The record is an 83-nucleotide RNA sequence from Sorghum bicolor, which matches "Small nucleolar RNA U54" in Rfam. Its Rfam clan is "U54 clan". The match comes from Rfam's covariance-model search (75 bits). By type it is a C/D-box small nucleolar RNA. The source organism's lineage runs through Eukaryota, Streptophyta, Mesangiospermae, Andropogonodae and Sorghum. For this family Rfam cites "The high diversity of snoRNAs in plants: identification and comparative study of 120 snoRNA genes from Oryza sativa" (Chen et al., Nucleic Acids Res, 2003).
RNA sequence: AGCUCAAUGAUUUCAACCAGGCACUCUGGUUGUAUACGCUAUUCUGAUUGCUGCUGUUGAAAAAAAAUUUAUUCAUGAGAGCU
Numbered sequence: 001a002g003c004u005c006a007a008u009g010a011u012u013u014c015a016a017c018c019a020g021g022c023a024c025u026c027u028g029g030u031u032g033u034a035u036a037c038g039c040u041a042u043u044c045u046g047a048u049u050g051c052u053g054c055u056g057u058u059g060a061a062a063a064a065a066a067a068u069u070u071a072u073u074c075a076u077g078a079g080a081g082c083u
Stems, first nucleotide, its partner, number of pairs: 001083005